[Rfam]
RNA sequence: CGUUCAGAGAUUGCCUCUGUCAUUACCUACGCUACGUAUGUAAUGGGAAUGCAAUUGUUGA
Numbered sequence: 001c002g003u004u005c006a007g008a009g010a011u012u013g014c015c016u017c018u019g020u021c022a023u024u025a026c027c028u029a030c031g032c033u034a035c036g037u038a039u040g041u042a043a044u045g046g047g048a049a050u051g052c053a054a055u056u057g058u059u060g061a
Base pairs, nucleotide, nucleotide: 009056010055011054012053013052014051020046021045022044023043027040029037

Notes:
The record is a 61-nucleotide sequence, which matches "Transposase-1 RNA" in Rfam. By type it is a small RNA.